[Rfam]
The record is a 117-nucleotide RNA sequence from Acidithiobacillus ferrianus, which matches "ALIL pseudoknot" in Rfam. By type it is a cis-regulatory element. A search with the family's covariance model found it, with a score of 106 bits. Lineage of the source: Bacteria > Pseudomonadati > Pseudomonadota > Acidithiobacillaceae > Acidithiobacillus. Rfam links the family to the GO term positive regulation of translational frameshifting.
RNA sequence: CGCGUUUUUCGCCCAGGCGGAGCUCGACCGCCGUUUGAAGCGUUGAGGUGUUUCACCGAUCAAUACCGAGGGCGUUUUGGGGUCGAGCCGAUCUGCCGAGUCUUGCAGAUUGCCCCA
Numbered sequence: 001c002g003c004g005u006u007u008u009u010c011g012c013c014c015a016g017g018c019g020g021a022g023c024u025c026g027a028c029c030g031c032c033g034u035u036u037g038a039a040g041c042g043u044u045g046a047g048g049u050g051u052u053u054c055a056c057c058g059a060u061c062a063a064u065a066c067c068g069a070g071g072g073c074g075u076u077u078u079g080g081g082g083u084c085g086a087g088c089c090g091a092u093c094u095g096c097c098g099a100g101u102c103u104u105g106c107a108g109a110u111u112g113c114c115c116c117a
Base pairs, nucleotide, nucleotide: 016032017031018030019029020028078117079116080115081114082113089112090111092109093108094107095106096105098103